[Rfam]
RNA sequence: GUCCAUGUAUCUUUGGGACCUGUCAGCUGUGGCAGUCUACCUUCUUAGCCAUGGAAGAGCAUAUUCUCAUUUAUUGUCAAAGCUGUCACCAUUUAAUUGGUAUGAGAUUCUGACUUGUACAAGUAACAUUC
Numbered sequence: 001g002u003c004c005a006u007g008u009a010u011c012u013u014u015g016g017g018a019c020c021u022g023u024c025a026g027c028u029g030u031g032g033c034a035g036u037c038u039a040c041c042u043u044c045u046u047a048g049c050c051a052u053g054g055a056a057g058a059g060c061a062u063a064u065u066c067u068c069a070u071u072u073a074u075u076g077u078c079a080a081a082g083c084u085g086u087c088a089c090c091a092u093u094u095a096a097u098u099g100g101u102a103u104g105a106g107a108u109u110c111u112g113a114c115u116u117g118u119a120c121a122a123g124u125a126a127c128a129u130u131c
Stems, first nucleotide, its partner, number of pairs: 002055006015041002018038001020035005070126002074122003078117003083106002088101004
The family of this 131-nucleotide RNA sequence from Tursiops truncatus is "Small nucleolar RNA SNORA24".
The base pairs follow the family's consensus structure, which was predicted with RNAfold.
Its family is annotated with nucleolus and RNA processing in the Gene Ontology.
Rfam describes the family as follows. ACA24 is a member of the H/ACA class of snoRNA that guide the sites of modification of uridines to pseudouridines.
Rfam classes the family as an H/ACA-box small nucleolar RNA.